[Rfam]
RNA sequence: ACUUUCCUUGUCAUGGGGUGGAUUGGUAGGCUCAAUGAACGCUAUGUGAGAGUCUUCCUGCUGACACCAUAGCAACACAUUAGCACCGCCUGGGCCACGUGCUCACGGUCGGGUGCAAUUUUUGGAAAC
Dot-bracket structure: .....((((.....)))).(.(.....((((((.....((.....))..))))))...).).....................(((((..(.((((.....))))..)....))))).............